[Rfam]
This 94-nucleotide RNA from Maritimibacter sp. 55A14 belongs to the Rfam family "Rhodo-rpoB RNA". The base pairs follow the family's consensus structure, which is taken from published work. The source organism's lineage runs through Bacteria, Pseudomonadati, Alphaproteobacteria, Rhodobacterales and Maritimibacter.
Nucleotides: 094
Stems, first nucleotide, its partner, number of pairs: 001043005010031004015026003065094001068091002070087005
Number, partner (000 for none) and nucleotide at each position: 001043g002042g003041u004040u005039c006000g007000g008000g009000a010031g011030c012029a013028g014000c015026c016025c017024g018000g019000u020000g021000g022000g023000a024017c025016g026015g027000u028013c029012u030011g031010c032000a033000u034000g035000a036000a037000u038000g039005g040004a041003a042002c043001c044000u045000g046000c047000c048000c049000c050000c051000c052000u053000g054000u055000u056000u057000u058000g059000u060000g061000a062000g063000c064000g065094g066000c067000g068091g069090c070087u071086g072085c073084c074083g075000g076000u077000g078000c079000c080000c081000g082000a083074c084073g085072g086071c087070a088000a089000c090069g091068c092000g093000a094065c